Rfam assigns this 102-nucleotide RNA sequence from Paenibacillus sp. GP183 to the family "Purine riboswitch aptamer".
RNA sequence: GAAGGCAAACAACAUUUCUUUCGUAUAAUCUCAAGAAUAAGGCUUGAGAGUCUCUACAAGAUCACCGCAAAUGAUCUGGCUACGAUGGGAACAUUGCUUGUA
Numbered sequence: 001g002a003a004g005g006c007a008a009a010c011a012a013c014a015u016u017u018c019u020u021u022c023g024u025a026u027a028a029u030c031u032c033a034a035g036a037a038u039a040a041g042g043c044u045u046g047a048g049a050g051u052c053u054c055u056a057c058a059a060g061a062u063c064a065c066c067g068c069a070a071a072u073g074a075u076c077u078g079g080c081u082a083c084g085a086u087g088g089g090a091a092c093a094u095u096g097c098u099u100g101u102a
Stems, first nucleotide, its partner, number of pairs: 018088002021085005029049007059077006

Rfam links the family to the GO term purine nucleobase biosynthetic process. NCBI's taxonomy places the organism under Bacteria, Bacillota, Bacilli, Paenibacillaceae, Paenibacillus.